[Rfam]
Glycine riboswitch aptamer: a 105-nucleotide RNA from Mobilicoccus pelagius. Pairs were carried over by alignment from the consensus structure. The family is grouped with related families in Rfam's "Glycine riboswitch clan". Lineage of the source: Bacteria > Actinomycetota > Micrococcales > Dermatophilaceae > Mobilicoccus pelagius.
RNA sequence: CAUGCUUGCGCGUGAGAGUUCGCUCGAGGUCCUCGCCGACCGACGGCGGCGCCGAAGGGGCAACACUCCCCGGAACCUCUCAGGCACCCGGAGCGCGUGAGAUCG
Numbered sequence: 001c002a003u004g005c006u007u008g009c010g011c012g013u014g015a016g017a018g019u020u021c022g023c024u025c026g027a028g029g030u031c032c033u034c035g036c037c038g039a040c041c042g043a044c045g046g047c048g049g050c051g052c053c054g055a056a057g058g059g060g061c062a063a064c065a066c067u068c069c070c071c072g073g074a075a076c077c078u079c080u081c082a083g084g085c086a087c088c089c090g091g092a093g094c095g096c097g098u099g100a101g102a103u104c105g
Stems, first nucleotide, its partner, number of pairs: 006100008020049004051085003054081002058079003064072001